[Rfam]
RNA sequence: UAAGGCGUUUACGCCGCAUCCGGCAAUGGUGCUCAACGCCUGAUGCGACGCUGGCGCGUCUUAUCAUGCC
Numbered sequence: 001u002a003a004g005g006c007g008u009u010u011a012c013g014c015c016g017c018a019u020c021c022g023g024c025a026a027u028g029g030u031g032c033u034c035a036a037c038g039c040c041u042g043a044u045g046c047g048a049c050g051c052u053g054g055c056g057c058g059u060c061u062u063a064u065c066a067u068g069c070c
Stems, first nucleotide, its partner, number of pairs: 001018001004015004038069002041066005047060005
RNA: Nucleoid-associated noncoding RNA 4 (CssrE)